Rfam assigns this 336-nucleotide RNA sequence from Sodalis ligni to the family "RNase E 5' UTR element".

RNA sequence: CUUUCCACGCUGCUUACGUAAAGGCGAAGAAACGUGGAAUUUUUUAAAUUUGCCUGAUUAACCAUACACGCGGCAAUGGCGUAAGACGUAUUGAUUAUUCAGGCAGUUAGCGGGCUGCGGAUUGCAGCUUGGCCGGCAAAAGGAAUUCGUUCUGGCGACAGACUUCAGACGUUAUUCCCUCAAUAAAAGCGCUGUUUUUCUCUCGGAAAACAGGCUACCGAAAUAAUGCGCCCCUCUGCUGACGACAACCGUGAGGUUGACGGUAUUGCGACAAGACACGGGGCCGUCGGUGAUUACCCGGUCUUGCGUUUUUUUUGCCCGCAGCUCUGAUGCCAA
Numbered sequence: 001c002u003u004u005c006c007a008c009g010c011u012g013c014u015u016a017c018g019u020a021a022a023g024g025c026g027a028a029g030a031a032a033c034g035u036g037g038a039a040u041u042u043u044u045u046a047a048a049u050u051u052g053c054c055u056g057a058u059u060a061a062c063c064a065u066a067c068a069c070g071c072g073g074c075a076a077u078g079g080c081g082u083a084a085g086a087c088g089u090a091u092u093g094a095u096u097a098u099u100c101a102g103g104c105a106g107u108u109a110g111c112g113g114g115c116u117g118c119g120g121a122u123u124g125c126a127g128c129u130u131g132g133c134c135g136g137c138a139a140a141a142g143g144a145a146u147u148c149g150u151u152c153u154g155g156c157g158a159c160a161g162a163c164u165u166c167a168g169a170c171g172u173u174a175u176u177c178c179c180u181c182a183a184u185a186a187a188a189g190c191g192c193u194g195u196u197u198u199u200c201u202c203u204c205g206g207a208a209a210a211c212a213g214g215c216u217a218c219c220g221a222a223a224u225a226a227u228g229c230g231c232c233c234c235u236c237u238g239c240u241g242a243c244g245a246c247a248a249c250c251g252u253g254a255g256g257u258u259g260a261c262g263g264u265a266u267u268g269c270g271a272c273a274a275g276a277c278a279c280g281g282g283g284c285c286g287u288c289g290g291u292g293a294u295u296a297c298c299c300g301g302u303c304u305u306g307c308g309u310u311u312u313u314u315u316u317g318c319c320c321g322c323a324g325c326u327c328u329g330a331u332g333c334c335a336a
Stems, first nucleotide, its partner, number of pairs: 003039006014029002017026002050106008061095001063093002068089003073080002112327009122317001131303006142178005151169005188216003192213004197209004217291005230284005243262002246259005
The source organism's lineage runs through Bacteria, Pseudomonadati, Gammaproteobacteria, Enterobacterales and Sodalis. Rfam's curators write: This family represents a conserved element found in the 5' UTR of RNase E mRNA. RNase E is a key regulatory enzyme in the pathway of mRNA degradation in E. coli that is able to auto-regulate the degradation of its own mRNA in response to changes in RNase E activity. This rne 5' UTR element acts as a sensor of cellular RNase E concentration enabling tight regulation of RNase E concentration and synthesis. It is annotated as a cis-regulatory element. A search with the family's covariance model found it, with a score of 268 bits.